[Rfam]
RNA: Mammalian CPEB3 ribozyme
RNA sequence: CCAGGUAGUGGGGGCCAUAGCAGAAGCAUUCACUUUGUGACCCCUGUCAGGUAAUACCUGUGAAUUCUGCC
Dot-bracket structure: ..........[[[[.[...(((((((((.......)))].]]]]...(((((...)))))....)))))).
Numbered sequence: 001c002c003a004g005g006u007a008g009u010g011g012g013g014g015c016c017a018u019a020g021c022a023g024a025a026g027c028a029u030u031c032a033c034u035u036u037g038u039g040a041c042c043c044c045u046g047u048c049a050g051g052u053a054a055u056a057c058c059u060g061u062g063a064a065u066u067c068u069g070c071c
Stems, first nucleotide, its partner, number of pairs: 011044004016039001020070006026038003048060005